[Rfam]
RNA sequence: GAAAGUAAAGGGGCAGUACUGAUUUCUUGACAGAACAAGAAAUCGGUUAUUGCUCCUUUACUA
Numbered sequence: 001g002a003a004a005g006u007a008a009a010g011g012g013g014c015a016g017u018a019c020u021g022a023u024u025u026c027u028u029g030a031c032a033g034a035a036c037a038a039g040a041a042a043u044c045g046g047u048u049a050u051u052g053c054u055c056c057u058u059u060a061c062u063a
Base pairs, nucleotide, nucleotide: 007059008058009057010056011055012054013053014052015051016050017049018048022043024041025040026039027038028037029036

The family of this 63-nucleotide sequence from Sesuvium portulacastrum is "Plastid-psbA-4 3UTR RNA". The base pairs follow the family's consensus structure, which was predicted with LocARNA. By type it is a cis-regulatory element. Clan: Plastid-psbA 3UTR RNA clan.